PyrR binding site: a 105-nucleotide RNA sequence from Lactobacillus sp. LL6. Lineage of the source: Bacteria > Bacillati > Bacilli > Lactobacillaceae > Lactobacillus. The base pairs follow the family's consensus structure, which is taken from published work. Rfam's curators write: This family represents the PyrR binding site and terminator structure. This RNA structure is found upstream of a variety of genes involved in pyrimidine biosynthesis and transport. The alignment also includes a portion of the antiterminator structure. By type it is a cis-regulatory element.

RNA sequence: AUUACUUUUAAAUUGGUCCUGUGAGGCUAGUAAAGUAAACUUCAAUUAAAGUGAAAACUUUGAAAAGGAUACUCCUAGUCUAACCAGACUAGGAGUUUUUUUAGA
Numbered sequence: 001a002u003u004a005c006u007u008u009u010a011a012a013u014u015g016g017u018c019c020u021g022u023g024a025g026g027c028u029a030g031u032a033a034a035g036u037a038a039a040c041u042u043c044a045a046u047u048a049a050a051g052u053g054a055a056a057a058c059u060u061u062g063a064a065a066a067g068g069a070u071a072c073u074c075c076u077a078g079u080c081u082a083a084c085c086a087g088a089c090u091a092g093g094a095g096u097u098u099u100u101u102u103a104g105a
Base pairs, nucleotide, nucleotide: 003038006035007034008033013030014029015028016027017026018025046063047062048061049060050059051058052057067100068099069098071096072095073094074093075092076091077090078089079088080087